[Rfam]
RNA sequence: GAAGGACCUGGGCGACGUCAUUCCCGGGUGGCUAUGCCGGGCGCCUAUCCCUCGGCUCAUC
Numbered sequence: 001g002a003a004g005g006a007c008c009u010g011g012g013c014g015a016c017g018u019c020a021u022u023c024c025c026g027g028g029u030g031g032c033u034a035u036g037c038c039g040g041g042c043g044c045c046u047a048u049c050c051c052u053c054g055g056c057u058c059a060u061c
Stems, first nucleotide, its partner, number of pairs: 006029006012022001036056006

The family of this 61-nucleotide sequence from Aureimonas pseudogalii is "sul1 RNA". Pairs were carried over by alignment from the consensus structure, which is taken from published work. It is annotated as a riboswitch.